A member of the RNA family "U7 small nuclear RNA" from Albula goreensis, 58 nucleotides long. It scores 40 bits against the family's covariance model.
RNA sequence: GAAUAUUUUGCUUUUUUAGUAUUUGUCCAGAAGGCUACCUAAUAAAUAGGAAGCCCUA
Number, nucleotide and partner (000 for none) at each position: 001g000002a000003a000004u000005a000006u000007u000008u000009u000010g000011c000012u000013u000014u000015u000016u000017u000018a000019g000020u000021a000022u000023u000024u000025g000026u000027c000028c000029a000030g000031a000032a000033g055034g054035c053036u052037a000038c050039c049040u048041a047042a000043u000044a000045a000046a000047u041048a040049g039050g038051a000052a036053g035054c034055c033056c000057u000058a000
Rfam's curators write: Animal histone pre-mRNAs are spliced by a different mechanism than nuclear pre-mRNAs and self-splicing introns. This processing involves the U7 snRNP, which contains only one RNA species: U7. The 5' end of U7 RNA is thought to base-pair to a conserved spacer element downstream of the cleavage site in histone pre-mRNA. This family contains a number of annotated U7 pseudogenes. The family's consensus secondary structure was predicted with PFOLD. The source organism's lineage runs through Eukaryota, Bilateria, Chordata, Elopomorpha and Albula.